The record is a 135-nucleotide sequence from Pseudoselenomonas ruminantium, which matches "Molybdenum/Tungsten riboswitch aptamer (Moco RNA motif)" in Rfam. Taxonomically the source falls in Pseudoselenomonas (Bacteria, Negativicutes, Selenomonadales, Selenomonadaceae).

[Rfam]
Nucleotides: 135
Base pairs, nucleotide, nucleotide: 003129004128006126011121013120014119015118016117019056020055024052025051026050027049028048029047033044034043035042036041058074059073060072061071062070077102078101079100081098082097083096084095085094086093087092103113104112
Number, partner (000 for none) and nucleotide at each position: 001000a002000a003129u004128g005000u006126c007000u008000g009000u010000a011121g012000u013120u014119u015118c016117c017000g018000a019056g020055c021000a022000a023000a024052a025051a026050u027049a028048u029047c030000u031000a032000a033044g034043g035042c036041c037000u038000u039000u040000g041036g042035g043034c044033u045000a046000u047029g048028a049027u050026a051025u052024u053000g054000c055020g056019c057000c058074a059073g060072a061071a062070c063000g064000c065000a066000g067000a068000g069000c070062g071061u072060u073059c074058u075000c076000a077102g078101g079100g080000c081098g082097u083096g084095g085094c086093g087092a088000g089000a090000a091000a092087u093086u094085g095084c096083c097082g098081c099000a100079c101078c102077u103113u104112c105000c106000u107000c108000a109000u110000u111000u112104g113103a114000a115000a116000a117016g118015g119014a120013g121011c122000u123000g124000a125000a126006g127000a128004c129003a130000a131000a132000u133000g134000a135000a